[Rfam]
RNA: Small nucleolar RNA SNORA9
Organism: Gadus morhua
RNA sequence: CCGCAGACCGUUUCCAGCGAGGCCCGGCCUGUCGUGGCCCUGUCCUUUCCUACCGUCUCUGCUAGAGCGACCUGAGGCCGUUUGAGGCCCAGCUGUGUCCUCUGCACAGCAGGGUUAAGAUUAACCUCUGACAAUU
Number, nucleotide and partner (000 for none) at each position: 001c000002c000003g062004c061005a060006g059007a058008c000009c000010g000011u000012u000013u000014c000015c000016a000017g000018c000019g000020a046021g045022g044023c000024c000025c000026g039027g038028c037029c036030u000031g000032u000033c000034g000035u000036g029037g028038c027039c026040c000041u000042g000043u000044c022045c021046u020047u000048u000049c000050c000051u000052a000053c000054c000055g000056u000057c000058u007059c006060u005061g004062c003063u000064a000065g000066a000067g000068c000069g000070a000071c000072c000073u000074g128075a127076g126077g125078c000079c000080g000081u000082u000083u000084g000085a000086g000087g000088c114089c113090c112091a000092g110093c109094u000095g107096u106097g105098u000099c000100c000101u000102c000103u000104g000105c097106a096107c095108a000109g093110c092111a000112g090113g089114g088115u000116u000117a000118a000119g000120a000121u000122u000123a000124a000125c077126c076127u075128c074129u000130g000131a000132c000133a000134a000135u000136u000